[Rfam]
RNA sequence: UGGAUUAGGGGAGAUGUGAUUGGGCCCAUGCUUCUUGCUGGGCUCAGGAAAGUCCCCGGGCCCUUACUGCAGAAAUGCAGGCCCUGCUAAAGGGUCACUACGAGCUCGAACUUGCGGCUGAGAUUUGUGUGGAGCCUAUGCUUGUUCUGCCGUAGUAAUUGGCCAAUUUCACAGUCAUUCACAUGGUCAUCAUGACUAACUGAACGGGGCUUACUCCCUCCUAAUCC
Numbered sequence: 001u002g003g004a005u006u007a008g009g010g011g012a013g014a015u016g017u018g019a020u021u022g023g024g025c026c027c028a029u030g031c032u033u034c035u036u037g038c039u040g041g042g043c044u045c046a047g048g049a050a051a052g053u054c055c056c057c058g059g060g061c062c063c064u065u066a067c068u069g070c071a072g073a074a075a076u077g078c079a080g081g082c083c084c085u086g087c088u089a090a091a092g093g094g095u096c097a098c099u100a101c102g103a104g105c106u107c108g109a110a111c112u113u114g115c116g117g118c119u120g121a122g123a124u125u126u127g128u129g130u131g132g133a134g135c136c137u138a139u140g141c142u143u144g145u146u147c148u149g150c151c152g153u154a155g156u157a158a159u160u161g162g163c164c165a166a167u168u169u170c171a172c173a174g175u176c177a178u179u180c181a182c183a184u185g186g187u188c189a190u191c192a193u194g195a196c197u198a199a200c201u202g203a204a205c206g207g208g209g210c211u212u213a214c215u216c217c218c219u220c221c222u223a224a225u226c227c
Stems, first nucleotide, its partner, number of pairs: 002227007009219003014184006021046007050212003054209004068079004080096006099155001101152002108146002116136003186196004
RNA: RNase MRP